[Rfam]
RNA sequence: AAAGGAGGAAUCCAAAGGGAUAGCAUGAUCCCAAAUAUUUUGAGAAGGGAAAGAGAAAUUUAAUCAAGACUGAAAUUUGGGAUCAAUGCGAUCCCUUUGGAUGCCUCCUC
Numbered sequence: 001a002a003a004g005g006a007g008g009a010a011u012c013c014a015a016a017g018g019g020a021u022a023g024c025a026u027g028a029u030c031c032c033a034a035a036u037a038u039u040u041u042g043a044g045a046a047g048g049g050a051a052a053g054a055g056a057a058a059u060u061u062a063a064u065c066a067a068g069a070c071u072g073a074a075a076u077u078u079g080g081g082a083u084c085a086a087u088g089c090g091a092u093c094c095c096u097u098u099g100g101a102u103g104c105c106u107c108c109u110c
Stems, first nucleotide, its partner, number of pairs: 003109004008104001010102012023089003026085006035077001